[Rfam]
RNA sequence: CAUCGCUCUCCAGCUCCAUGCAGACGUAAGAAAGUCAGUGUGGCGUUUUCAUGAGCGGAAAUUGUACACUGUUCCAUAAAACAAUUGUUACACUCUUUAUGAGAGAACGAUCACCUAAUGGUUCAAACAUUU
Numbered sequence: 001c002a003u004c005g006c007u008c009u010c011c012a013g014c015u016c017c018a019u020g021c022a023g024a025c026g027u028a029a030g031a032a033a034g035u036c037a038g039u040g041u042g043g044c045g046u047u048u049u050c051a052u053g054a055g056c057g058g059a060a061a062u063u064g065u066a067c068a069c070u071g072u073u074c075c076a077u078a079a080a081a082c083a084a085u086u087g088u089u090a091c092a093c094u095c096u097u098u099a100u101g102a103g104a105g106a107a108c109g110a111u112c113a114c115c116u117a118a119u120g121g122u123u124c125a126a127a128c129a130u131u132u
Stems, first nucleotide, its partner, number of pairs: 003058006012047003016043006024035002084111004089106001093103003
RNA: Nematode snoRNA ceN36-1